Shown here is a 99-nucleotide RNA sequence from Ellagibacter isourolithinifaciens, a member of the family "NiCo (Nickel/Cobalt) riboswitch aptamer".
Taxonomically the source falls in Ellagibacter (Bacteria, Bacillati, Actinomycetota, Coriobacteriia).
RNA sequence: ACAGCGCAAACUGAUCAGGCCGUGGUGUAGCGCCAUGGAGCCGGGCCGGCGGGGACGUCGGCAGCAGAUGCAUCUUUUGGACGCGCCUGCGGGACAGUU
Numbered sequence: 001a002c003a004g005c006g007c008a009a010a011c012u013g014a015u016c017a018g019g020c021c022g023u024g025g026u027g028u029a030g031c032g033c034c035a036u037g038g039a040g041c042c043g044g045g046c047c048g049g050c051g052g053g054g055a056c057g058u059c060g061g062c063a064g065c066a067g068a069u070g071c072a073u074c075u076u077u078u079g080g081a082c083g084c085g086c087c088u089g090c091g092g093g094a095c096a097g098u099u
Base pairs, nucleotide, nucleotide: 010098011097012096013095016093018042019041020040022036023035024034025033026032027031045062046061047060048059049058050057051056064090065089066088067087069085